[Rfam]
RNA sequence: AACAAUUUUAGUUGUCCAGUGUUUGAUUUGUAAAACUGUUUCAAGUACAGGACAAACUGGAGGCAAGGGACAGGACAA
Numbered sequence: 001a002a003c004a005a006u007u008u009u010a011g012u013u014g015u016c017c018a019g020u021g022u023u024u025g026a027u028u029u030g031u032a033a034a035a036c037u038g039u040u041u042c043a044a045g046u047a048c049a050g051g052a053c054a055a056a057c058u059g060g061a062g063g064c065a066a067g068g069g070a071c072a073g074g075a076c077a078a
Stems, first nucleotide, its partner, number of pairs: 006062008014053004019048008028038001030036002

Notes: A member of the RNA family "MIR5286 microRNA precursor family" from Medicago truncatula, 78 nucleotides long. Gene Ontology terms of the family: miRNA-mediated post-transcriptional gene silencing and RISC complex.